Shown here is a 99-nucleotide RNA from Candidatus Magnetovum chiemense, a member of the family "Bacterial small signal recognition particle RNA".
Pairs were carried over by alignment from the consensus structure, which is taken from published work.
The family is grouped with related families in Rfam's "SRP clan".
It scores 70 bits against the family's covariance model.

[Rfam]
RNA sequence: GCAAAAGCCCUGCGCAGCAGCAGGGUGUGAACCCCGUCAGGUCCGGAAGGAAGCAGCGGUAAAUACUUUUUGCUUCGUGCCGCAGCAAGUUUUUGCCCG
Numbered sequence: 001g002c003a004a005a006a007g008c009c010c011u012g013c014g015c016a017g018c019a020g021c022a023g024g025g026u027g028u029g030a031a032c033c034c035c036g037u038c039a040g041g042u043c044c045g046g047a048a049g050g051a052a053g054c055a056g057c058g059g060u061a062a063a064u065a066c067u068u069u070u071u072g073c074u075u076c077g078u079g080c081c082g083c084a085g086c087a088a089g090u091u092u093u094u095g096c097c098c099g
Stems, first nucleotide, its partner, number of pairs: 004093005010085005015077001017076001019074004023068006034059004042051003
Rfam describes the family as follows. The signal recognition particle (SRP) is a universally conserved ribonucleoprotein involved in the co-translational targeting of proteins to membranes.